[Rfam]
RNA sequence: ACAGCGGGCCGGGCCCCUCUGGCGCAGCGCUUUCGCGCGGCGCGAUGUCGGACCGCAUCG
Numbered sequence: 001a002c003a004g005c006g007g008g009c010c011g012g013g014c015c016c017c018u019c020u021g022g023c024g025c026a027g028c029g030c031u032u033u034c035g036c037g038c039g040g041c042g043c044g045a046u047g048u049c050g051g052a053c054c055g056c057a058u059c060g
Stems, first nucleotide, its partner, number of pairs: 006054002009051004022043004027038003
The record is a 60-nucleotide sequence from Altererythrobacter sp. TH136, which matches "terC RNA" in Rfam. It scores 60 bits against the family's covariance model. It is annotated as a cis-regulatory element.